[Rfam]
RNA: Ribosomal protein L20 leader
RNA sequence: GUAAUAAAGAAGAAGUUAUCCGCUUCUCACCUUAAUAGCGACGCUUUUAGGGUUAAUAAAGCAAUUGUAACACACUUAUGUGGUUUUGUGGAGCGGGUACAAUGUACCCGCUCUUAUUAAUUUGC
Numbered sequence: 001g002u003a004a005u006a007a008a009g010a011a012g013a014a015g016u017u018a019u020c021c022g023c024u025u026c027u028c029a030c031c032u033u034a035a036u037a038g039c040g041a042c043g044c045u046u047u048u049a050g051g052g053u054u055a056a057u058a059a060a061g062c063a064a065u066u067g068u069a070a071c072a073c074a075c076u077u078a079u080g081u082g083g084u085u086u087u088g089u090g091g092a093g094c095g096g097g098u099a100c101a102a103u104g105u106a107c108c109c110g111c112u113c114u115u116a117u118u119a120a121u122u123u124g125c
Base pairs, nucleotide, nucleotide: 011027012026013025014024015023016022029053030052031051035048037046038044039043092112093111094110095109096108097107098106099105100104